PyrR binding site: a 118-nucleotide sequence from Philodulcilactobacillus myokonensis. The family's consensus secondary structure is taken from published work. The organism belongs to Philodulcilactobacillus, within Bacteria.
[Rfam]
RNA sequence: CAUACCUUUAAGGCAAUCCAGUGAGUUUGCCAAGGUUAGUGAUCAAGUGAACAAUGAUUAAUUACUGAUCCCUAACUUGGUAAGCUUUCUGAUGCAAUAUUCAGGAAGCUUUUUUAAU
Dot-bracket structure: ...(((((....((((.(......).)))).))))).........(((.(...((.(.(....).).))...).)))..(.(((((((((((........))))))))))).).....